Description: Shown here is a 68-nucleotide RNA sequence from Albula goreensis, a member of the family "mir-29 microRNA precursor family".
RNA sequence: GGAUGACUGAUUUCUGUUGGUGCGUAGAGUACUCUGCACUUUCUAGCACCAUUUGAAAUCGGUUAUAA
Numbered sequence: 001g002g003a004u005g006a007c008u009g010a011u012u013u014c015u016g017u018u019g020g021u022g023c024g025u026a027g028a029g030u031a032c033u034c035u036g037c038a039c040u041u042u043c044u045a046g047c048a049c050c051a052u053u054u055g056a057a058a059u060c061g062g063u064u065a066u067a068a
Base pairs, nucleotide, nucleotide: 003066004065005063007062008061009060010059011058012057013056014055018051019050020049021048022047025045026044027043028042

This family represents the microRNA (miRNA) precursors mir-29. Pairs were carried over by alignment from the consensus structure, which was predicted with PFOLD. The organism belongs to Albula, within Eukaryota. On this family, see Ambros, Cell 2001: "microRNAs: tiny regulators with great potential".